[Rfam]
Nucleotides: 067
Stems, first nucleotide, its partner, number of pairs: 001067004015052010030040003
Number, partner (000 for none) and nucleotide at each position: 001067g002066u003065g004064a005000c006000a007000u008000u009000u010000a011000u012000g013000a014000a015052g016051g017050c018049u019048u020047g021046u022045g023044c024043u025000g026000a027000a028000a029000g030040u031039a032038g033000a034000c035000a036000c037000u038032c039031u040030a041000c042000u043024a044023g045022c046021g047020c048019a049018a050017g051016c052015c053000c054000g055000a056000u057000g058000c059000u060000c061000u062000g063000c064004u065003c066002a067001c
Source information:
Shown here is a 67-nucleotide sequence from Triplophysa rosa, a member of the family "Selenocysteine insertion sequence 1". The match comes from Rfam's covariance-model search (37 bits). Rfam describes the family as follows. The incorporation of selenocysteine into a protein sequence is directed by an in-frame UGA codon (usually a stop codon) within the coding region of the mRNA. Selenoprotein mRNAs contain a conserved secondary structure in the 3' UTR that is required for the distinction of UGA stop from UGA selenocysteine. The selenocysteine insertion sequence (SECIS) is around 60 nt in length and adopts a hairpin structure which is sufficiently well-defined and conserved to act as a computational screen for selenoprotein genes. Taxonomically the source falls in Triplophysa (Eukaryota, Bilateria, Gnathostomata, Cypriniformes).